Nucleotides: 054
Base pairs, nucleotide, nucleotide: 001052002051003050005048006047
Number, partner (000 for none) and nucleotide at each position: 001052g002051a003050u004000a005048c006047c007000c008000u009000u010000c011000c012000u013000a014000c015000a016000a017000a018000a019000a020000u021000a022000a023000c024000a025000a026000c027000u028000u029000u030000c031000a032000a033000g034000a035000a036000g037000a038000a039000a040000c041000c042000c043000c044000c045000c046000a047006g048005g049000g050003a051002u052001c053000u054000g